[Rfam]
RNA sequence: UCGUAAGUCCUUGCCCGGCAGAUGCCGGCAUCGACGAGCCUCGCCCAUCCCGAAUGGAUGCACGAGGUUUCACCAGAAAAAGGAA
Numbered sequence: 001u002c003g004u005a006a007g008u009c010c011u012u013g014c015c016c017g018g019c020a021g022a023u024g025c026c027g028g029c030a031u032c033g034a035c036g037a038g039c040c041u042c043g044c045c046c047a048u049c050c051c052g053a054a055u056g057g058a059u060g061c062a063c064g065a066g067g068u069u070u071c072a073c074c075a076g077a078a079a080a081a082g083g084a085a
Stems, first nucleotide, its partner, number of pairs: 007035003012030004018025002036070008046060005
RNA: gyrA RNA